The family of this 112-nucleotide sequence is "drum RNA". The base pairs follow the family's consensus structure, which is taken from published work.
[Rfam]
RNA sequence: AAGCUAUGAUUAAACAUUGUGUUCCAGAAUGCAUAGUGUUUAUAGCUUCCGUAGGGUUGUAUGUGUUUACCUCAAGUUGGAUAGGUCUGUUGGCUGAAAGAAAACAUUCUGA
Numbered sequence: 001a002a003g004c005u006a007u008g009a010u011u012a013a014a015c016a017u018u019g020u021g022u023u024c025c026a027g028a029a030u031g032c033a034u035a036g037u038g039u040u041u042a043u044a045g046c047u048u049c050c051g052u053a054g055g056g057u058u059g060u061a062u063g064u065g066u067u068u069a070c071c072u073c074a075a076g077u078u079g080g081a082u083a084g085g086u087c088u089g090u091u092g093g094c095u096g097a098a099a100g101a102a103a104a105c106a107u108u109c110u111g112a
Base pairs, nucleotide, nucleotide: 001048002047003046004045011042012041013040014039015038016037017036018035019034020033021032022031024080025079026078027077061107062106063105084095085094086093087092
Rfam classes the family as a small RNA. Rfam's curators put it in the seed alignment. From the family's description: Firmicutes, Bacteroidetes (1 example), Proteobacteria (2 examples), Spirochaetes (2 examples).